[Rfam]
RNA: Eukaryotic large subunit ribosomal RNA, nucleotides 2059 to 2549
Organism: Achlya hypogyna
RNA sequence: UAGAAGAAUGUAGAUAAGGGAAGUCGGCAAAAUAGAUCCGUAACUUCGGGAAAAGGAUUGGCUCUGAGGGUUGGGUAUGGACGUCUUUUCGGGGAGCCUUGAUGGCCUACAAUGGAGUGUGUCGGACCUCUCGGGGACUGACAUGGGCCGUUGGUUGGGCUGCCUUGGUUGUACUGGAGAGAAUUGUGUAUACGAUGAACAACUAACUCAGAACUGGAGCGGACAAGGGGAAUCCGACUGUUUAAUUAAAACAAAGCAUUGUGAUGGCCGGAGACGGUGUUGACACAAUGUGAUUUCUGCCCAGUGCUCUGAAUGUCAAAGUGAAGAGAUUCAACCAAGCGCGGGUAAACGGCGGGAGUAACUAUGACUCUCUUAAGGUAGCCAAAUGCCUCGUCAUCUAACUAGUGACGCGCAUGAAUGGAUUAAUGAGAUUCCCACUGUCCCUAUCUACUGUCUAGCGAACCCACAGCCAAGGGAACGGGCUUGGAAAA
Numbered sequence: 001u002a003g004a005a006g007a008a009u010g011u012a013g014a015u016a017a018g019g020g021a022a023g024u025c026g027g028c029a030a031a032a033u034a035g036a037u038c039c040g041u042a043a044c045u046u047c048g049g050g051a052a053a054a055g056g057a058u059u060g061g062c063u064c065u066g067a068g069g070g071u072u073g074g075g076u077a078u079g080g081a082c083g084u085c086u087u088u089u090c091g092g093g094g095a096g097c098c099u100u101g102a103u104g105g106c107c108u109a110c111a112a113u114g115g116a117g118u119g120u121g122u123c124g125g126a127c128c129u130c131u132c133g134g135g136g137a138c139u140g141a142c143a144u145g146g147g148c149c150g151u152u153g154g155u156u157g158g159g160c161u162g163c164c165u166u167g168g169u170u171g172u173a174c175u176g177g178a179g180a181g182a183a184u185u186g187u188g189u190a191u192a193c194g195a196u197g198a199a200c201a202a203c204u205a206a207c208u209c210a211g212a213a214c215u216g217g218a219g220c221g222g223a224c225a226a227g228g229g230g231a232a233u234c235c236g237a238c239u240g241u242u243u244a245a246u247u248a249a250a251a252c253a254a255a256g257c258a259u260u261g262u263g264a265u266g267g268c269c270g271g272a273g274a275c276g277g278u279g280u281u282g283a284c285a286c287a288a289u290g291u292g293a294u295u296u297c298u299g300c301c302c303a304g305u306g307c308u309c310u311g312a313a314u315g316u317c318a319a320a321g322u323g324a325a326g327a328g329a330u331u332c333a334a335c336c337a338a339g340c341g342c343g344g345g346u347a348a349a350c351g352g353c354g355g356g357a358g359u360a361a362c363u364a365u366g367a368c369u370c371u372c373u374u375a376a377g378g379u380a381g382c383c384a385a386a387u388g389c390c391u392c393g394u395c396a397u398c399u400a401a402c403u404a405g406u407g408a409c410g411c412g413c414a415u416g417a418a419u420g421g422a423u424u425a426a427u428g429a430g431a432u433u434c435c436c437a438c439u440g441u442c443c444c445u446a447u448c449u450a451c452u453g454u455c456u457a458g459c460g461a462a463c464c465c466a467c468a469g470c471c472a473a474g475g476g477a478a479c480g481g482g483c484u485u486g487g488a489a490a491a
Stems, first nucleotide, its partner, number of pairs: 001457004010451007018443003035059005044049001060215002063212006069204005075193005081187003084182003088178004097168002103162007110153006118145008127136003216220001228436007235428002239253003256291008267278004295422003299353003304350002306346004311342001314341003322333004354372006373377001393409005470487005